[Rfam]
Record summary: This 222-nucleotide RNA from filamentous cyanobacterium CCP2 belongs to the Rfam family "c-di-AMP riboswitch aptamer (ydaO/yuaA leader)". NCBI's taxonomy places the organism under Bacteria, Bacillati, Cyanobacteriota. A search with the family's covariance model found it, with a score of 65 bits.

RNA sequence: UCCACUAGUCAGCCUAAUUCGGCACUUCAUCAGAGUCGCGAUGAAUCCGAAGCGGAGGAACCAACCUUUGGGGCGAAUCGGACAAAAGGUAGCAGAUGAAAGAUAAAUAACCAAGAAAGCAAAGUCUUGAUUCUUUAGUCUCUCGCUUUGACCUUUUACAACGAAGGGCACCUCUCAGCCCUAGCCCGUCAGCUAACUCCGUCGGCAGUGAGGGGAGACUGA
Number, nucleotide and partner (000 for none) at each position: 001u000002c000003c000004a000005c000006u000007a000008g000009u000010c000011a000012g206013c205014c204015u000016a000017a000018u051019u050020c049021g048022g047023c000024a000025c000026u000027u000028c000029a000030u000031c000032a000033g000034a000035g000036u000037c000038g000039c000040g000041a000042u000043g000044a000045a000046u000047c022048c021049g020050a019051a018052g202053c201054g200055g199056a198057g197058g000059a000060a000061c000062c070063a069064a000065c000066c000067u000068u000069u063070g062071g187072g186073g185074c000075g000076a000077a000078u000079c163080g162081g000082a000083c000084a000085a000086a000087a000088g000089g000090u000091a000092g000093c000094a000095g000096a000097u000098g000099a000100a000101a000102g000103a000104u000105a000106a000107a000108u000109a000110a000111c000112c000113a000114a000115g000116a000117a000118a000119g000120c000121a000122a000123a000124g000125u000126c000127u000128u000129g000130a000131u000132u000133c000134u000135u000136u000137a000138g000139u000140c000141u000142c000143u000144c000145g000146c000147u000148u000149u000150g000151a000152c000153c000154u000155u000156u000157u000158a000159c000160a000161a000162c080163g079164a000165a000166g181167g180168g179169c178170a000171c000172c000173u000174c000175u000176c000177a000178g169179c168180c167181c166182u000183a000184g000185c073186c072187c071188g000189u000190c000191a000192g000193c000194u000195a000196a000197c057198u056199c055200c054201g053202u052203c000204g014205g013206c012207a000208g000209u000210g000211a000212g000213g000214g000215g000216a000217g000218a000219c000220u000221g000222a000